Shown here is a 159-nucleotide RNA from Clytia hemisphaerica, a member of the family "Small nucleolar RNA SNORA79". Pairs were carried over by alignment from the consensus structure, which was predicted with RNAalifold. A search with the family's covariance model found it, with a score of 64 bits. Taxonomically the source falls in Clytia (Eukaryota, Cnidaria, Leptothecata, Clytiidae).
RNA sequence: CGAUGGUACUGUUCCUUGUCAUCUUGUAAGAAUUAAGAUGUACAAUUUUAUACCAUCGUAGAUAAACUUUCGUGUUACUUCACCCAUGUUUUCUUUCUCGGUUGGCGUGUGGUUGACUGGAUCUAGUAAGAUACAUGGACUUUGCAAGCACAAACAAUC
Numbered sequence: 001c002g003a004u005g006g007u008a009c010u011g012u013u014c015c016u017u018g019u020c021a022u023c024u025u026g027u028a029a030g031a032a033u034u035a036a037g038a039u040g041u042a043c044a045a046u047u048u049u050a051u052a053c054c055a056u057c058g059u060a061g062a063u064a065a066a067c068u069u070u071c072g073u074g075u076u077a078c079u080u081c082a083c084c085c086a087u088g089u090u091u092u093c094u095u096u097c098u099c100g101g102u103u104g105g106c107g108u109g110u111g112g113u114u115g116a117c118u119g120g121a122u123c124u125a126g127u128a129a130g131a132u133a134c135a136u137g138g139a140c141u142u143u144g145c146a147a148g149c150a151c152a153a154a155c156a157a158u159c
Stems, first nucleotide, its partner, number of pairs: 001058008016045004020040001022038004072151005084138006091131002
Dot-bracket structure: ((((((((.......(((((.((((.........)))).).)))).....)))))))).............(((((.......((((((.((.....................................)).))))))........)))))........
About this RNA:
The family's RNA type in Rfam is H/ACA-box small nucleolar RNA. Rfam's curators write: ACA65 (SNORA79) is a member of the H/ACA class of snoRNAs that guide the sites of modification of uridines to pseudouridines.